[Rfam]
RNA sequence: AGGUUAAUUUAAGACAUAAUAGCUACGGGACUGACCUGAAAUGGAGAAAUUACUCUUGCUGAUCACUU
Numbered sequence: 001a002g003g004u005u006a007a008u009u010u011a012a013g014a015c016a017u018a019a020u021a022g023c024u025a026c027g028g029g030a031c032u033g034a035c036c037u038g039a040a041a042u043g044g045a046g047a048a049a050u051u052a053c054u055c056u057u058g059c060u061g062a063u064c065a066c067u068u
Stems, first nucleotide, its partner, number of pairs: 001068004006063001
Shown here is a 68-nucleotide RNA from Peromyscus maniculatus, a member of the family "Small nucleolar RNA SNORD2". Rfam links the family to the GO terms RNA processing and nucleolus. The family has 17 seed sequences and 1,116 matches in Rfam 15.1. The match comes from Rfam's covariance-model search (42 bits). Rfam classes the family as a C/D-box small nucleolar RNA. The source organism's lineage runs through Eukaryota, Craniata, Theria, Muroidea and Peromyscus maniculatus. The base pairs follow the family's consensus structure, which was predicted with WAR.